[Rfam]
RNA: mir-515 microRNA precursor family
RNA sequence: UCUCAAGCUGUGAGUCUACAAAGGAAAGCGCUUUCUGUUGUCUGAAAGAAAAGAAAUCGCUUCCCUUUGGAGUGUUACGGUUUGAGA
Dot-bracket structure: (((((.(((((((..((..(((((.(((((.((((..((...........)))))).))))).)))))..))..))))))).)))))
Numbered sequence: 001u002c003u004c005a006a007g008c009u010g011u012g013a014g015u016c017u018a019c020a021a022a023g024g025a026a027a028g029c030g031c032u033u034u035c036u037g038u039u040g041u042c043u044g045a046a047a048g049a050a051a052a053g054a055a056a057u058c059g060c061u062u063c064c065c066u067u068u069g070g071a072g073u074g075u076u077a078c079g080g081u082u083u084g085a086g087a
Stems, first nucleotide, its partner, number of pairs: 001087005007081007016072002020068005026062005032056004038052002